[Rfam]
RNA sequence: GGGGCUGGCUGAGUGACUGGUGUCCUCCCGGGUCUUCAAAACCCUGCGGGAGACGCGUGCCGUCUUCGGUGGGUUCGAUUCCCACACAGUCCC
Numbered sequence: 001g002g003g004g005c006u007g008g009c010u011g012a013g014u015g016a017c018u019g020g021u022g023u024c025c026u027c028c029c030g031g032g033u034c035u036u037c038a039a040a041a042c043c044c045u046g047c048g049g050g051a052g053a054c055g056c057g058u059g060c061c062g063u064c065u066u067c068g069g070u071g072g073g074u075u076c077g078a079u080u081c082c083c084a085c086a087c088a089g090u091c092c093c
Base pairs, nucleotide, nucleotide: 001093002092003091004090005089006088007087008085011027012026013025015024016023017022028046030044031043032042033041049067050066051065052064053063070084071083072082073081
RNA: Selenocysteine transfer RNA